[Rfam]
RNA: Group II catalytic intron D1-D4-4
Organism: Azohydromonas caseinilytica
RNA sequence: CCGUCGGUGAAAGUCCGACCCGGCCAACUCGCGCUCCGGCCGGAAGCACAAGGAGCGGUCCAGGAGGUAACGAAUGGGCUGAAGCACUGCUUGAAAAGGCCUCGUAGGAGGCCAGCAGGCCAUGCGGGCCGCAACGUGA
Numbered sequence: 001c002c003g004u005c006g007g008u009g010a011a012a013g014u015c016c017g018a019c020c021c022g023g024c025c026a027a028c029u030c031g032c033g034c035u036c037c038g039g040c041c042g043g044a045a046g047c048a049c050a051a052g053g054a055g056c057g058g059u060c061c062a063g064g065a066g067g068u069a070a071c072g073a074a075u076g077g078g079c080u081g082a083a084g085c086a087c088u089g090c091u092u093g094a095a096a097a098g099g100c101c102u103c104g105u106a107g108g109a110g111g112c113c114a115g116c117a118g119g120c121c122a123u124g125c126g127g128g129c130c131g132c133a134a135c136g137u138g139a
Stems, first nucleotide, its partner, number of pairs: 020043005051091002054088002056081006066071001098113006115132002